Rfam assigns this 358-nucleotide RNA from Pseudidiomarina taiwanensis to the family "Bacterial RNase P class A".
NCBI's taxonomy places the organism under Bacteria, Pseudomonadota, Gammaproteobacteria, Alteromonadales, Pseudidiomarina.
By type it is a ribozyme.
RNA sequence: GAAGCUAGCCAGACAAUCGCUGCUUAUCGCAAGAUAAGGGGAGGAAAGUCCGGGCUCCAAAGGGCAGGGUGCCAGGUAACACCUGGGCGACGAAAGUCGACGACUAGUGCAACAGAGAGCAUACCGCCGAUGGCCUGUUUAGACAGGAUCAGGUAAGGGUGAAAGGGUGCGGUAAGAGCGCACCGCGCAACUGGUAACAGUUUGUGGCACGGUAAACUCCACUCGGAGCAAGGUCAAAUAGGGGUUCAUUGGCGCGGCCCGCGUUGAACCCGGGUAGACUGCUUGACCGUUAGGGUGACUUAACGGCUAGACGAAUGAUUGUCCACGACAGAACCCGGCUUAUCGGCUAGCUUCCCUU
Number, nucleotide and partner (000 for none) at each position: 001g354002a353003a352004g351005c350006u349007a348008g347009c346010c345011a343012g323013a322014c321015a320016a319017u318018c317019g000020c041021u040022g000023c038024u037025u036026a035027u034028c033029g000030c000031a000032a000033g028034a027035u026036a025037a024038g023039g000040g021041g020042a000043g000044g000045a000046a341047a340048g339049u000050c338051c337052g336053g335054g334055c228056u227057c226058c225059a000060a000061a000062g260063g259064g258065c257066a000067g224068g223069g222070u221071g220072c086073c085074a084075g083076g082077u000078a000079a000080c000081a000082c076083c075084u074085g073086g072087g101088c099089g098090a097091c096092g000093a000094a000095a000096g091097u090098c089099g088100a000101c087102g219103a218104c000105u000106a000107g217108u216109g213110c212111a000112a000113c000114a000115g000116a000117g000118a000119g000120c000121a000122u000123a000124c158125c157126g154127c153128c152129g000130a000131u151132g150133g149134c000135c147136u146137g000138u000139u000140u000141a000142g000143a000144c000145a000146g136147g135148a000149u133150c132151a131152g128153g127154u126155a000156a000157g125158g124159g000160u000161g000162a000163a000164a000165g000166g184167g183168u182169g181170c180171g179172g000173u000174a000175a000176g000177a000178g000179c171180g170181c169182a168183c167184c166185g208186c206187g205188c204189a203190a202191c200192u199193g198194g000195u000196a000197a000198c193199a192200g191201u000202u190203u189204g188205u187206g186207g000208c185209a000210c000211g000212g110213u109214a000215a000216a108217c107218u103219c102220c071221a070222c069223u068224c067225g058226g057227a056228g055229c000230a000231a000232g280233g279234u278235c277236a000237a000238a000239u000240a000241g000242g271243g270244g269245u268246u267247c266248a000249u000250u000251g265252g264253c263254g262255c261256g000257g065258c064259c063260c062261g255262c254263g253264u252265u251266g247267a246268a245269c244270c243271c242272g000273g000274g000275u000276a000277g235278a234279c233280u232281g000282c000283u000284u000285g000286a000287c306288c305289g304290u303291u302292a301293g300294g299295g000296u000297g000298a000299c294300u293301u292302a291303a290304c289305g288306g287307c000308u000309a000310g000311a000312c000313g000314a000315a000316u000317g018318a017319u016320u015321g014322u013323c012324c000325a000326c000327g000328a000329c000330a000331g000332a000333a000334c054335c053336c052337g051338g050339c048340u047341u046342a000343u011344c000345g010346g009347c008348u007349a006350g005351c004352u003353u002354c001355c000356c000357u000358u000